[Rfam]
RNA sequence: UGUGUUUUAAUGACGAUUUGUUUGCAAACUCUGUUGAGAGAACAGUUCUGAUGCUAUACA
Numbered sequence: 001u002g003u004g005u006u007u008u009a010a011u012g013a014c015g016a017u018u019u020g021u022u023u024g025c026a027a028a029c030u031c032u033g034u035u036g037a038g039a040g041a042a043c044a045g046u047u048c049u050g051a052u053g054c055u056a057u058a059c060a
Stems, first nucleotide, its partner, number of pairs: 003060003015048002018045006029038003
Dot-bracket structure: ..(((.........((.((((((.....(((....))).)))))).)).........)))